[Rfam]
The record is a 160-nucleotide sequence from Alkaliphilus sp. B6464, which matches "M-box riboswitch aptamer (ykoK leader)" in Rfam.

RNA sequence: AAUAUACCUCGGUAGGUGAGGUUACUACAAGGAUACGGGUUGCUGCCGUGAAAGGAUGGAAACAUUCUUAACAGGUUAGCAGGUUUAGCCGAAUAAAGAAGGCUUAAUCUAAUGCAACUUCAUCGCCUUGCAGAGCCAAAGCUUGAACGAGACUAAAUCU
Numbered sequence: 001a002a003u004a005u006a007c008c009u010c011g012g013u014a015g016g017u018g019a020g021g022u023u024a025c026u027a028c029a030a031g032g033a034u035a036c037g038g039g040u041u042g043c044u045g046c047c048g049u050g051a052a053a054g055g056a057u058g059g060a061a062a063c064a065u066u067c068u069u070a071a072c073a074g075g076u077u078a079g080c081a082g083g084u085u086u087a088g089c090c091g092a093a094u095a096a097a098g099a100a101g102g103c104u105u106a107a108u109c110u111a112a113u114g115c116a117a118c119u120u121c122a123u124c125g126c127c128u129u130g131c132a133g134a135g136c137c138a139a140a141g142c143u144u145g146a147a148c149g150a151g152a153c154u155a156a157a158u159c160u
Stems, first nucleotide, its partner, number of pairs: 005156001009152002011148001013100001015143003020137003025133002028130005039118005046074001048072002055066004082109004088103003